Record summary: This 89-nucleotide RNA sequence from Ziziphus jujuba belongs to the Rfam family "Plastid-psbM 3UTR RNA". Plastid psbM is a non-coding RNA (ncRNA) recognised in plastids. It was found in the three prime untranslated region (3UTR) of psbM gene, its 3UTR location suggests a role in transcript maturation. A search with the family's covariance model found it, with a score of 73 bits. The family's RNA type in Rfam is cis-regulatory element. NCBI's taxonomy places the organism under Eukaryota, Mesangiospermae, Pentapetalae, Rosales, Ziziphus.

RNA sequence: GAGACGAUAGUAUGGUAGAAAGAAAGAUUCAUAUUUUUCUUUCUACCAUACUAUCUAGUAUUGUCGUUGUAGUAUAUAAACUUUACUAU
Numbered sequence: 001g002a003g004a005c006g007a008u009a010g011u012a013u014g015g016u017a018g019a020a021a022g023a024a025a026g027a028u029u030c031a032u033a034u035u036u037u038u039c040u041u042u043c044u045a046c047c048a049u050a051c052u053a054u055c056u057a058g059u060a061u062u063g064u065c066g067u068u069g070u071a072g073u074a075u076a077u078a079a080a081c082u083u084u085a086c087u088a089u
Stems, first nucleotide, its partner, number of pairs: 006055023